[Rfam]
RNA sequence: GUGCUUUUGGGAUGAACAAGUCCCUCAUAUUUAUUCAAUUCCAUCCUUUUCACUUUGUCAGCUGUUUCUUGGUGUCUAGCUGAUCAUUUUGGGAUGGAAAAUUC
Numbered sequence: 001g002u003g004c005u006u007u008u009g010g011g012a013u014g015a016a017c018a019a020g021u022c023c024c025u026c027a028u029a030u031u032u033a034u035u036c037a038a039u040u041c042c043a044u045c046c047u048u049u050u051c052a053c054u055u056u057g058u059c060a061g062c063u064g065u066u067u068c069u070u071g072g073u074g075u076c077u078a079g080c081u082g083a084u085c086a087u088u089u090u091g092g093g094a095u096g097g098a099a100a101a102u103u104c
Base pairs, nucleotide, nucleotide: 040098041097042096043095044094045093057084058083059082060081061080062079063078064077